A member of the RNA family "Alphaproteobacterial sRNA BjrC1505" from Methylopila sp. Yamaguchi, 142 nucleotides long. The match comes from Rfam's covariance-model search (100 bits). It is annotated as a small RNA. For this family Rfam cites "Small RNAs of the Bradyrhizobium/Rhodopseudomonas lineage and their analysis" (Madhugiri et al., RNA Biol, 2012). Lineage of the source: Bacteria > Pseudomonadati > Alphaproteobacteria > Methylopilaceae > Methylopila. The base pairs follow the family's consensus structure.

RNA sequence: GCCUCGCUUAACCGUCGGUUAACCUUCCUCGUUCAUUGAUGGCUGCGUCCAGUUUUCUGGAUUGCGAGUGGUUCCUGUCCACUCUGUUUGACGCCUCCCUGUCAUCACACUUUCAGGCCGCCGUAUUGGCGGCCUUUUUUUC
Number, nucleotide and partner (000 for none) at each position: 001g043002c042003c041004u000005c014006g013007c000008u000009u000010a000011a000012c000013c006014g005015u000016c000017g000018g000019u000020u035021a000022a033023c000024c031025u000026u000027c000028c000029u000030c000031g024032u000033u022034c000035a020036u000037u000038g000039a000040u000041g003042g002043c001044u000045g000046c000047g062048u061049c060050c059051a000052g000053u000054u000055u000056u000057c000058u000059g050060g049061a048062u047063u000064g000065c000066g084067a083068g082069u081070g080071g079072u000073u000074c000075c000076u000077g000078u000079c071080c070081a069082c068083u067084c066085u000086g000087u000088u000089u000090g103091a102092c101093g100094c000095c000096u000097c000098c000099c000100u093101g092102u091103c090104a000105u000106c000107a000108c000109a000110c000111u000112u000113u000114c000115a135116g134117g133118c132119c131120g130121c129122c128123g127124u000125a000126u000127u123128g122129g121130c120131g119132g118133c117134c116135u115136u000137u000138u000139u000140u000141u000142c000